Rfam assigns this 28-nucleotide RNA sequence to the family "L19-Flavobacteria ribosomal protein leader". The family's RNA type in Rfam is cis-regulatory leader.
RNA sequence: AAACCUCUGACGAAAAUCGUGAAUGUUU
Dot-bracket structure: ((((...(.((((...))))..).))))
Source information: Pairs were carried over by alignment from the consensus structure, which is taken from published work.